A member of the RNA family "TPP riboswitch aptamer (THI element)" from Cutibacterium avidum, 104 nucleotides long. The match comes from Rfam's covariance-model search (67 bits).
[Rfam]
RNA sequence: UCUCAACGACAGGGGAGCAUCAUCGGAUGCUGAGAGUGGGCACCGCCCAGACCCUCGAACCUGAACCGGUUAGGACCGGCGUAGGGAGUCGGGCUCUUCGCGCA
Numbered sequence: 001u002c003u004c005a006a007c008g009a010c011a012g013g014g015g016a017g018c019a020u021c022a023u024c025g026g027a028u029g030c031u032g033a034g035a036g037u038g039g040g041c042a043c044c045g046c047c048c049a050g051a052c053c054c055u056c057g058a059a060c061c062u063g064a065a066c067c068g069g070u071u072a073g074g075a076c077c078g079g080c081g082u083a084g085g086g087a088g089u090c091g092g093g094c095u096c097u098u099c100g101c102g103c104a
Base pairs, nucleotide, nucleotide: 007091008090009089010088011055012054013053014052017030018029019028020027021026037049038048039047040046041045060085061084062083063082066079067078068077069076